The record is a 132-nucleotide RNA from Balaenoptera musculus, which matches "Small nucleolar RNA SNORA51" in Rfam. NCBI's taxonomy places the organism under Eukaryota, Bilateria, Amniota, Laurasiatheria, Balaenoptera. Rfam classes the family as an H/ACA-box small nucleolar RNA. Rfam 15.1 lists 2,121 matches to the family in 210 species.
[Rfam]
RNA sequence: GGCUUCUCAGUAUUUACCACAGGCUGUUUGCUUACAAUAACCGUACAGAAUGAGGAGGCAGAAUAAAUCUAUUCUAUGUACACCUCAGCCCACGUCCUUUGCCUAGUCUGUGUUAUGAAUAGGGGGACAUGG
Numbered sequence: 001g002g003c004u005u006c007u008c009a010g011u012a013u014u015u016a017c018c019a020c021a022g023g024c025u026g027u028u029u030g031c032u033u034a035c036a037a038u039a040a041c042c043g044u045a046c047a048g049a050a051u052g053a054g055g056a057g058g059c060a061g062a063a064u065a066a067a068u069c070u071a072u073u074c075u076a077u078g079u080a081c082a083c084c085u086c087a088g089c090c091c092a093c094g095u096c097c098u099u100u101g102c103c104u105a106g107u108c109u110g111u112g113u114u115a116u117g118a119a120u121a122g123g124g125g126g127a128c129a130u131g132g
Stems, first nucleotide, its partner, number of pairs: 002059006020043001022041001027036001029034001072124006086110003090106001092104001094102002
Pairs were carried over by alignment from the consensus structure, which was predicted with PFOLD. ACA51 is a member of the H/ACA class of snoRNA that guide the sites of modification of uridines to pseudouridines. Rfam links the family to the GO terms nucleolus and RNA processing.